Shown here is an 85-nucleotide RNA sequence from Lentibacillus sp. CBA3610, a member of the family "c-di-GMP-I riboswitch aptamer". The source organism's lineage runs through Bacteria, Bacillati, Bacillota, Bacillaceae and Lentibacillus. About the family: GEMM was predicted in a large-scale screen for bacterial structured RNA regulatory elements. A search with the family's covariance model found it, with a score of 59 bits.
RNA sequence: GUCAGAAAAAGGCAAACCCAUCGAAAGUUGGGGACGCAACGUUACAGGUCUUCCAUGGCAGCAUGAUGACGGCUGGACUGCCUGC
Numbered sequence: 001g002u003c004a005g006a007a008a009a010a011g012g013c014a015a016a017c018c019c020a021u022c023g024a025a026a027g028u029u030g031g032g033g034a035c036g037c038a039a040c041g042u043u044a045c046a047g048g049u050c051u052u053c054c055a056u057g058g059c060a061g062c063a064u065g066a067u068g069a070c071g072g073c074u075g076g077a078c079u080g081c082c083u084g085c
Base pairs, nucleotide, nucleotide: 012037013036017032018031019030020029022027041078042077043076045075046074047073048070049069050068055064056063057062
Record summary
Pairs were carried over by alignment from the consensus structure, which is taken from published work. Rfam links the family to the GO term cyclic-di-GMP binding.